This 103-nucleotide RNA sequence from Crenobacter luteus belongs to the Rfam family "Glycine riboswitch aptamer".
The source organism's lineage runs through Bacteria, Pseudomonadota, Betaproteobacteria, Neisseriaceae and Crenobacter.
A search with the family's covariance model found it, with a score of 72 bits.
Its family is annotated with glycine biosynthetic process in the Gene Ontology.
Nucleotides: 103
Stems, first nucleotide, its partner, number of pairs: 006098008020047007049083003052079002056077003062071002
Number, partner (000 for none) and nucleotide at each position: 001000c002000g003000g004000c005000a006098u007097c008096a009095u010094g011093c012092a013091g014000g015000a016000g017000a018000g019000a020047g021046c022045a023044g024043c025042g026041g027000u028000c029000u030000u031000c032000c033000c034000c035000a036000g037000a038000c039000u040000c041026c042025c043024g044023c045022u046021g047020c048000c049083g050082c051081c052079g053078a054000a055000g056077g057076c058075g059000c060000a061000a062071g063070c064000g065000c066000a067000c068000c069000c070063g071062c072000a073000a074000u075058c076057g077056c078053u079052c080000a081051g082050g083049c084000a085000a086000a087000a088000g089000g090000a091013c092012u093011g094010c095009a096008u097007g098006a099000g100000c101000g102000g103000a